[Rfam]
RNA: DUF805 RNA
Organism: Flavobacterium hercynium
RNA sequence: AACAAGUGGAGCAGACCCCACUGAAAAAAACGAGGCGGUUCCGAAAAGCCUUAUGAGUAGGAAACUU
Numbered sequence: 001a002a003c004a005a006g007u008g009g010a011g012c013a014g015a016c017c018c019c020a021c022u023g024a025a026a027a028a029a030a031c032g033a034g035g036c037g038g039u040u041c042c043g044a045a046a047a048g049c050c051u052u053a054u055g056a057g058u059a060g061g062a063a064a065c066u067u
Stems, first nucleotide, its partner, number of pairs: 006021004034050003041061002
Dot-bracket structure: .....((((........))))............(((....[[.....))).........]]......